[Rfam]
RNA sequence: UUGCAUGGUCAGUUUUGCUGGUUUGCAUUCCGCUUCAGAUGUUUGCUGUGCAAAUCCAUGCAAAACUGACUGUGUUG
Numbered sequence: 001u002u003g004c005a006u007g008g009u010c011a012g013u014u015u016u017g018c019u020g021g022u023u024u025g026c027a028u029u030c031c032g033c034u035u036c037a038g039a040u041g042u043u044u045g046c047u048g049u050g051c052a053a054a055u056c057c058a059u060g061c062a063a064a065a066c067u068g069a070c071u072g073u074g075u076u077g
Stems, first nucleotide, its partner, number of pairs: 003075016020057002022054007032046002

Shown here is a 77-nucleotide sequence from Salarias fasciatus, a member of the family "mir-19 microRNA precursor family". The family has 106 seed sequences and 2,337 matches in Rfam 15.1. Gene Ontology terms of the family: RISC complex and miRNA-mediated post-transcriptional gene silencing. A reference for the family is Lagos-Quintana et al. (2001), "Identification of novel genes coding for small expressed RNAs", Science. Pairs were carried over by alignment from the consensus structure, which was predicted with RNAalifold.